[Rfam]
RNA sequence: UGAUGAGGUAGAGGCGCAGAAACCAAGAGUACAGUAUGUGAGAAUGACAACGAUGAUCAUAUUGAAAAGGGGUUUUUGCCGAAGUGAAUGUUAGCUAGUCAGGCUGCAUUUGCUGGUAUUACGUUGAAUAAAGGUAAUACUGUCAUUAUAGAAAACUAUAAUGGAGGGCUACUGAUCGA
Numbered sequence: 001u002g003a004u005g006a007g008g009u010a011g012a013g014g015c016g017c018a019g020a021a022a023c024c025a026a027g028a029g030u031a032c033a034g035u036a037u038g039u040g041a042g043a044a045u046g047a048c049a050a051c052g053a054u055g056a057u058c059a060u061a062u063u064g065a066a067a068a069g070g071g072g073u074u075u076u077u078g079c080c081g082a083a084g085u086g087a088a089u090g091u092u093a094g095c096u097a098g099u100c101a102g103g104c105u106g107c108a109u110u111u112g113c114u115g116g117u118a119u120u121a122c123g124u125u126g127a128a129u130a131a132a133g134g135u136a137a138u139a140c141u142g143u144c145a146u147u148a149u150a151g152a153a154a155a156c157u158a159u160a161a162u163g164g165a166g167g168g169c170u171a172c173u174g175a176u177c178g179a
Base pairs, nucleotide, nucleotide: 007173008172009171010170011169016079017078018077019076020075021074022073023072024071032064033063034062035061036060037059038058083114084113085112086111087110088109089108090107091106093105094104095103115141116140117139118138119137120136121135122134124132125131143164144163145162146161147160148159149158
Dot-bracket structure: ......(((((....(((((((((.......(((((((...................)))))))......)))))))))...(((((((((.(((.......))))))))))))((((((((.((.....)).)))))))).(((((((........)))))))....)))))......